[Rfam]
RNA: SAH (S-adenosyl-L-homocysteine) riboswitch aptamer
RNA sequence: UCCGCCGAGGGGCGCUGCGACCAGGGGCCGUUCCCAGAACGCCACGGGCCAGGCUCGGUGGGACGGUCCUUCGAAACGGCGCCCGGCAACG
Numbered sequence: 001u002c003c004g005c006c007g008a009g010g011g012g013c014g015c016u017g018c019g020a021c022c023a024g025g026g027g028c029c030g031u032u033c034c035c036a037g038a039a040c041g042c043c044a045c046g047g048g049c050c051a052g053g054c055u056c057g058g059u060g061g062g063a064c065g066g067u068c069c070u071u072c073g074a075a076a077c078g079g080c081g082c083c084c085g086g087c088a089a090c091g
Base pairs, nucleotide, nucleotide: 002061003060004059005058006057007056008055021048022047024045026043027042028041
Dot-bracket structure: .(((((((............((.(.(((............))).).))......)))))))..............................